[Rfam]
Nucleotides: 112
Base pairs, nucleotide, nucleotide: 001112003109004108011036012035016031017030018029019028020027021026034098039105040104042102044101045100046099047096048095049094050093051092052091
Number, partner (000 for none) and nucleotide at each position: 001112c002000a003109c004108g005000a006000u007000a008000a009000g010000g011036g012035c013000a014000a015000a016031c017030c018029c019028u020027g021026a022000g023000u024000g025000a026021u027020c028019a029018g030017g031016g032000g033000a034098c035012g036011c037000a038000a039105a040104g041000a042102a043000a044101a045100g046099g047096g048095u049094c050093u051092u052091u053000c054000g055000u056000a057000a058000a059000g060000g061000c062000g063000u064000a065000u066000u067000g068000c069000a070000a071000u072000a073000c074000g075000c076000c077000u078000c079000u080000a081000c082000a083000u084000c085000u086000g087000a088000u089000g090000a091052a092051a093050a094049g095048a096047c097000a098034g099046c100045c101044u102042u103000a104040c105039u106000g107000c108004c109003g110000a111000a112001g

Rfam assigns this 112-nucleotide RNA sequence from Candidatus Brocadia fulgida to the family "c-di-GMP-I-GGC riboswitch aptamer".
It scores 61 bits against the family's covariance model.
Rfam 15.1 lists 1,298 matches to the family in 717 species.
Gene Ontology term of the family: cyclic-di-GMP binding.